[Rfam]
Nucleotides: 166
Base pairs, nucleotide, nucleotide: 002165003164004163005162006161007160010065011064012063013062016059017058019056020055021054022053023052024051025050026049027048028047029046030043032041033040034039069120070119071118072117074115075114076113079110080109081108082107087103088102089101090100091099092098093097124155125154126153127152128151130149135145136144137143138142
Number, partner (000 for none) and nucleotide at each position: 001000a002165g003164a004163u005162g006161c007160c008000a009000g010065g011064u012063u013062u014000c015000c016059a017058a018000a019056g020055u021054c022053a023052u024051a025050c026049a027048g028047a029046u030043g031000g032041g033040u034039g035000c036000u037000u038000g039034c040033a041032c042000a043030c044000a045000u046029g047028u048027c049026u050025g051024u052023a053022u054021g055020a056019c057000c058017u059016u060000g061000g062013a063012a064011a065010c066000c067000g068000c069120c070119c071118c072117g073000a074115u075114a076113u077000g078000a079110g080109g081108a082107u083000a084000a085000a086000a087103g088102c089101a090100c091099u092098g093097c094000g095000a096000a097093g098092c099091a100090g101089u102088g103087c104000g105000a106000u107082a108081u109080c110079c111000g112000a113076a114075u115074g116000g117072c118071g119070g120069g121000u122000g123000u124155a125154g126153a127152u128151u129000a130149c131000g132000g133000g134000a135145g136144c137143a138142c139000g140000a141000a142138g143137u144136g145135c146000g147000g148000a149130g150000c151128a152127a153126u154125c155124u156000g157000c158000a159000a160007g161006g162005c163004a164003u165002c166000g